[Rfam]
RNA: Small nucleolar RNA Z13/snr52
Organism: Purpureocillium lilacinum
RNA sequence: CCCUUCACAAUGAUGAAUUAUUUCGGAUGUAAAACAUAAUGUUGUCGGAAUGCGCAAACAUACCAUGUCGAGAUUUCCGUUGCCUUCCUUCUGAUACCGAAGG
Numbered sequence: 001c002c003c004u005u006c007a008c009a010a011u012g013a014u015g016a017a018u019u020a021u022u023u024c025g026g027a028u029g030u031a032a033a034a035c036a037u038a039a040u041g042u043u044g045u046c047g048g049a050a051u052g053c054g055c056a057a058a059c060a061u062a063c064c065a066u067g068u069c070g071a072g073a074u075u076u077c078c079g080u081u082g083c084c085u086u087c088c089u090u091c092u093g094a095u096a097c098c099g100a101a102g103g
Stems, first nucleotide, its partner, number of pairs: 003102003024079004